[Rfam]
RNA sequence: GGGCCGGGUCGCGACUGGCGGACAGAUCAGGUGGGGAACCACCGGGGAGCGACGCAGCAGCUGACGAGGGGUCGUACGCCUGGGCCCCGGGU
Numbered sequence: 001g002g003g004c005c006g007g008g009u010c011g012c013g014a015c016u017g018g019c020g021g022a023c024a025g026a027u028c029a030g031g032u033g034g035g036g037a038a039c040c041a042c043c044g045g046g047g048a049g050c051g052a053c054g055c056a057g058c059a060g061c062u063g064a065c066g067a068g069g070g071g072u073c074g075u076a077c078g079c080c081u082g083g084g085c086c087c088c089g090g091g092u
Stems, first nucleotide, its partner, number of pairs: 003058002006055001008053005015046002017080004031042004069087005

Background:
The record is a 92-nucleotide RNA sequence from Actinotalea fermentans, which matches "ZMP/ZTP riboswitch aptamer (pfl RNA motif)" in Rfam. Lineage of the source: Bacteria > Actinomycetota > Actinomycetes > Micrococcales > Actinotalea. Gene Ontology terms of the family: one-carbon metabolic process and regulation of purine nucleotide biosynthetic process.